[Rfam]
RNA sequence: GAGAGCGGAUGUGGCCCGGUGGCUGCCCUGGUCUUCAAAACCAGCGGGCGGGGUGACGAGCUUCGUCGGUGGGUUCGACUCCCACGCGCUCUC
Numbered sequence: 001g002a003g004a005g006c007g008g009a010u011g012u013g014g015c016c017c018g019g020u021g022g023c024u025g026c027c028c029u030g031g032u033c034u035u036c037a038a039a040a041c042c043a044g045c046g047g048g049c050g051g052g053g054u055g056a057c058g059a060g061c062u063u064c065g066u067c068g069g070u071g072g073g074u075u076c077g078a079c080u081c082c083c084a085c086g087c088g089c090u091c092u093c
Stems, first nucleotide, its partner, number of pairs: 001093007008085001011026006028044005047067005070084004